[Rfam]
RNA sequence: UGAAUUAAAAUUUUCUUAAAAUCUCGAUUUAUAGGGGGUUUUUUGAAGUGAUUUGAACGUUUAAGAAUAGUGUAUGGUGGCCCCGAAUGGACUUGAACCAUCGACUUCCACCA
Numbered sequence: 001u002g003a004a005u006u007a008a009a010a011u012u013u014u015c016u017u018a019a020a021a022u023c024u025c026g027a028u029u030u031a032u033a034g035g036g037g038g039u040u041u042u043u044u045g046a047a048g049u050g051a052u053u054u055g056a057a058c059g060u061u062u063a064a065g066a067a068u069a070g071u072g073u074a075u076g077g078u079g080g081c082c083c084c085g086a087a088u089g090g091a092c093u094u095g096a097a098c099c100a101u102c103g104a105c106u107u108c109c110a111c112c113a
Stems, first nucleotide, its partner, number of pairs: 018041002023036003052057001075110003079106002084103002087101004
RNA: Bacterial antisense RNA HPnc0260